[Rfam]
RNA sequence: AUCGCAAGUACGAGGGCAGAGCAGAAGUGCUCACAGCAUGGCCCUAUCAGAUUCAAAUGAAUCUGCAAAAUUCACU
Numbered sequence: 001a002u003c004g005c006a007a008g009u010a011c012g013a014g015g016g017c018a019g020a021g022c023a024g025a026a027g028u029g030c031u032c033a034c035a036g037c038a039u040g041g042c043c044c045u046a047u048c049a050g051a052u053u054c055a056a057a058u059g060a061a062u063c064u065g066c067a068a069a070a071u072u073c074a075c076u
Stems, first nucleotide, its partner, number of pairs: 014044003017040001020076002024072002027039003048065007
RNA: Mammalian CPEB3 ribozyme